[Rfam]
Nucleotides: 060
Stems, first nucleotide, its partner, number of pairs: 001060006013021003023046003027041001030040003
Number, partner (000 for none) and nucleotide at each position: 001060u002059c003058u004057c005056u006055g007000g008000a009000g010000a011000g012000a013021g014020c015019c016000a017000u018000a019015g020014g021013c022000c023046a024045c025044c026000a027041a028000a029000g030040g031039a032038g033000u034000u035000a036000a037000a038032c039031u040030c041027u042000c043000a044025g045024g046023u047000a048000c049000a050000a051000g052000g053000g054000a055006c056005a057004g058003a059002g060001a
A member of the RNA family "Glycine riboswitch aptamer" from Bacillus sp. PK3_68, 60 nucleotides long. About the family: This family represents the bacterial glycine riboswitch. Glycine riboswitches usually consist of two metabolite-binding aptamers domains with similar structures in tandem. The aptamers cooperatively bind glycine to regulate the expression of downstream genes. In Bacillus subtilis, this riboswitch is found upstream of the gcvT operon which controls glycine degradation. Pairs were carried over by alignment from the consensus structure. Its family is annotated with glycine biosynthetic process in the Gene Ontology. A search with the family's covariance model found it, with a score of 33 bits.